Description
A member of the RNA family "Small nucleolar RNA SNORA17" from Coregonus sp. 'balchen', 126 nucleotides long. The literature on the family includes a 1997 paper in J Mol Biol by Ofengand and Bakin, "Mapping to nucleotide resolution of pseudouridine residues in large subunit ribosomal RNAs from representative eukaryotes, prokaryotes, archaebacteria, mitochondria and chloroplasts". The family's RNA type in Rfam is H/ACA-box small nucleolar RNA. The family has 53 seed sequences and 5,784 matches in Rfam 15.1.
[Rfam]
RNA sequence: CCUGCCCCUUGAGGCGUUGCAGUCCGACUGUAAGUGUGGAGCCUGUGUCAUGAGGGGUGGAGAGUGACAAUGGCUAUGUCUACGCAGAGGUCCCAGAACAGUGGCUACUUGGAGUGAUCAUAGCGC
Number, nucleotide and partner (000 for none) at each position: 001c000002c060003u059004g058005c057006c056007c055008c054009u053010u052011g051012a000013g049014g048015c047016g000017u000018u000019g046020c045021a044022g043023u000024c041025c039026g000027a037028c036029u000030g000031u000032a000033a000034g000035u000036g028037u027038g000039g025040a000041g024042c000043c022044u021045g020046u019047g015048u014049c013050a000051u011052g010053a009054g008055g007056g006057g005058u004059g003060g002061a000062g000063a000064g000065u000066g000067a000068c000069a000070a000071u000072g126073g124074c123075u122076a121077u120078g000079u000080c000081u000082a000083c000084g000085c111086a110087g109088a000089g106090g105091u104092c103093c000094c000095a000096g000097a000098a000099c000100a000101g000102u000103g092104g091105c090106u089107a000108c000109u087110u086111g085112g000113a000114g000115u000116g000117a000118u000119c000120a077121u076122a075123g074124c073125g000126c072
Lineage of the source: Eukaryota > Bilateria > Gnathostomata > Teleostei > Coregonus. Gene Ontology terms of the family: RNA processing and nucleolus. The base pairs follow the family's consensus structure, which was predicted with RNAalifold.